RNA: Small nucleolar RNA SNORA84
RNA sequence: GCCUGGUGGUUCCUAGAGUCAGCCGUUUAAUGCUGGACUUCAGGUUUGUUAAACAGGCACAUAUUGAUUCUGCGAUUUUAUGCAUGGAAGCUGCAACUAUAGCAGCCUUCCAUAGCCCGGUUGCAGAUACAUUU
Numbered sequence: 001g002c003c004u005g006g007u008g009g010u011u012c013c014u015a016g017a018g019u020c021a022g023c024c025g026u027u028u029a030a031u032g033c034u035g036g037a038c039u040u041c042a043g044g045u046u047u048g049u050u051a052a053a054c055a056g057g058c059a060c061a062u063a064u065u066g067a068u069u070c071u072g073c074g075a076u077u078u079u080a081u082g083c084a085u086g087g088a089a090g091c092u093g094c095a096a097c098u099a100u101a102g103c104a105g106c107c108u109u110c111c112a113u114a115g116c117c118c119g120g121u122u123g124c125a126g127a128u129a130c131a132u133u134u
Stems, first nucleotide, its partner, number of pairs: 001058004012044003016040002019036005070126001072124006082116002084113004089108002091105004